[Rfam]
RNA sequence: CCAAGGGCACCCACUUUGGAGCCCUUGGGAGUACCAGUUCUCCCACGUGGGAGACAAAUCAUCCCUGUUUAAUAUUUAAACAGCAGUGUUCCCC
Numbered sequence: 001c002c003a004a005g006g007g008c009a010c011c012c013a014c015u016u017u018g019g020a021g022c023c024c025u026u027g028g029g030a031g032u033a034c035c036a037g038u039u040c041u042c043c044c045a046c047g048u049g050g051g052a053g054a055c056a057a058a059u060c061a062u063c064c065c066u067g068u069u070u071a072a073u074a075u076u077u078a079a080a081c082a083g084c085a086g087u088g089u090u091c092c093c094c
Stems, first nucleotide, its partner, number of pairs: 003026006011019002039054006065083008

A member of the RNA family "G-CSF factor stem-loop destabilising element (SLDE)" from Orycteropus afer, 94 nucleotides long. Rfam classes the family as a cis-regulatory element. From the family's description: This family represents the granulocyte colony-stimulating factor stem-loop destabilising element (G-CSF SLDE). G-CSF is secreted by fibroblasts and endothelial cells in response to the inflammatory mediators interleukin-1 (IL-1) and tumour necrosis factor alpha and by activated macrophages. The synthesis of G-CSF is regulated both transcriptionally and through control of mRNA stability. The family has 16 seed sequences and 132 matches in Rfam 15.1. Its family is annotated with nuclear-transcribed mRNA poly(A) tail shortening in the Gene Ontology.